The record is a 67-nucleotide sequence, which matches "RAGATH-18 RNA" in Rfam. Actinobacteria, Firmicutes, Fusobacteria, Thermotogae (1 example).

[Rfam]
RNA sequence: CUUGUGGACUAUCAAAACAACUGUAGUAGUGAACUUUUUGGCGAGGCAGGAUAGGAAGAAGCAAGAA
Numbered sequence: 001c002u003u004g005u006g007g008a009c010u011a012u013c014a015a016a017a018c019a020a021c022u023g024u025a026g027u028a029g030u031g032a033a034c035u036u037u038u039u040g041g042c043g044a045g046g047c048a049g050g051a052u053a054g055g056a057a058g059a060a061g062c063a064a065g066a067a
Stems, first nucleotide, its partner, number of pairs: 001065005009054005021049003029042002032039002
The family's consensus secondary structure is taken from published work. It is one of the family's seed sequences.